[Rfam]
RNA sequence: ACGCUUGUCAAAGGGGAGUAGCUUCGAAUUGGGAACCCAUUCGCAAUAAAGUCGUCAUUACAUGGUGGUUUCAUCAUCGGCUUUGUUGGCUUUUAAAAGAGCU
Numbered sequence: 001a002c003g004c005u006u007g008u009c010a011a012a013g014g015g016g017a018g019u020a021g022c023u024u025c026g027a028a029u030u031g032g033g034a035a036c037c038c039a040u041u042c043g044c045a046a047u048a049a050a051g052u053c054g055u056c057a058u059u060a061c062a063u064g065g066u067g068g069u070u071u072c073a074u075c076a077u078c079g080g081c082u083u084u085g086u087u088g089g090c091u092u093u094u095a096a097a098a099g100a101g102c103u
Stems, first nucleotide, its partner, number of pairs: 025043003045087010062077005
This 103-nucleotide sequence from Bacillus sp. FJAT-18017 belongs to the Rfam family "Manganese Mn2+ riboswitch aptamer (yybP-ykoY)". A search with the family's covariance model found it, with a score of 48 bits. Gene Ontology term of the family: manganese ion binding.